[Rfam]
RNA sequence: UGUCUCCUCCACCCUCCUCCUUUGGUGGAUUUACCCCGAAACCGUUUGGUUUCGGGGUUUUUUUU
Numbered sequence: 001u002g003u004c005u006c007c008u009c010c011a012c013c014c015u016c017c018u019c020c021u022u023u024g025g026u027g028g029a030u031u032u033a034c035c036c037c038g039a040a041a042c043c044g045u046u047u048g049g050u051u052u053c054g055g056g057g058u059u060u061u062u063u064u065u
Stems, first nucleotide, its partner, number of pairs: 008029006033058008
A member of the RNA family "Betaproteobacteria toxic small RNA" from Corticimicrobacter populi, 65 nucleotides long.
About the family: Overexpression in amino aid rich medium attenuates growth, suggesting role in repressing amino acid intake and metabolism.
The organism belongs to Corticimicrobacter, within Bacteria.
The base pairs follow the family's consensus structure, which was predicted with WAR.